[Rfam]
RNA sequence: CGCCGGACGCCGCCGAACCGUGCACCGGUCGAUGACCGGUGCGCAGGCCGGGGACCCACCGCAGCACUGGGGUGAAGCGCGACCUCGUCGCGCCGGGCGACUCCCCCGUCCGAACCCGUCAGCUAACCCGGUAGGCGGUCGUGGAGAACAGGA
Numbered sequence: 001c002g003c004c005g006g007a008c009g010c011c012g013c014c015g016a017a018c019c020g021u022g023c024a025c026c027g028g029u030c031g032a033u034g035a036c037c038g039g040u041g042c043g044c045a046g047g048c049c050g051g052g053g054a055c056c057c058a059c060c061g062c063a064g065c066a067c068u069g070g071g072g073u074g075a076a077g078c079g080c081g082a083c084c085u086c087g088u089c090g091c092g093c094c095g096g097g098c099g100a101c102u103c104c105c106c107c108g109u110c111c112g113a114a115c116c117c118g119u120c121a122g123c124u125a126a127c128c129c130g131g132u133a134g135g136c137g138g139u140c141g142u143g144g145a146g147a148a149c150a151g152g153a
Stems, first nucleotide, its partner, number of pairs: 001137004008046001047132006057069002070117003078092004095111004
Rfam assigns this 153-nucleotide RNA from Geodermatophilus obscurus to the family "c-di-AMP riboswitch aptamer (ydaO/yuaA leader)". Rfam describes the family as follows. This family represents a conserved RNA structure found upstream of the ydaO and yuaA genes in Bacillus subtilis and related genes in other bacteria. The organism belongs to Geodermatophilus obscurus, within Bacteria.